[Rfam]
RNA: Small nucleolar RNA Z279/snoR105/snoR108
RNA sequence: GGGAAAUGAUAAGUUGUCAAAACUCACAUUCUAUGUGAGAAUUGGGUGUCCAGCUUGCCUAAGCCUGGUUACGACAAUAUGGGCACUCCGAUUUGUUACUGAUCUGAUCCC
Numbered sequence: 001g002g003g004a005a006a007u008g009a010u011a012a013g014u015u016g017u018c019a020a021a022a023c024u025c026a027c028a029u030u031c032u033a034u035g036u037g038a039g040a041a042u043u044g045g046g047u048g049u050c051c052a053g054c055u056u057g058c059c060u061a062a063g064c065c066u067g068g069u070u071a072c073g074a075c076a077a078u079a080u081g082g083g084c085a086c087u088c089c090g091a092u093u094u095g096u097u098a099c100u101g102a103u104c105u106g107a108u109c110c111c
Stems, first nucleotide, its partner, number of pairs: 001111004014101001016099002023039005044088007066081002068078002